RNA sequence: GAGCAUCAGCACCUUGGCUUUAGACUGCUUACUGCUUUAAUAAAGUCUCACGGUUACAGUAACAGUCUACAGUCAUGGCUACUGAUGCCUG
Number, nucleotide and partner (000 for none) at each position: 001g000002a000003g000004c000005a000006u000007c000008a000009g000010c000011a000012c078013c077014u000015u075016g074017g073018c072019u000020u000021u000022a000023g067024a066025c065026u064027g063028c000029u062030u061031a060032c059033u058034g000035c000036u000037u000038u000039a000040a000041u000042a000043a000044a000045g000046u000047c000048u000049c000050a000051c000052g000053g000054u000055u000056a000057c000058a033059g032060u031061a030062a029063c027064a026065g025066u024067c023068u000069a000070c000071a000072g018073u017074c016075a015076u000077g013078g012079c000080u000081a000082c000083u000084g000085a000086u000087g000088c000089c000090u000091g000
This 91-nucleotide sequence from Salvelinus namaycush belongs to the Rfam family "mir-132 microRNA precursor family".
The family's consensus secondary structure was predicted with RNAalifold.
Gene Ontology terms of the family: RISC complex and miRNA-mediated post-transcriptional gene silencing.
The source organism's lineage runs through Eukaryota, Craniata, Teleostomi, Euteleostomi and Salvelinus.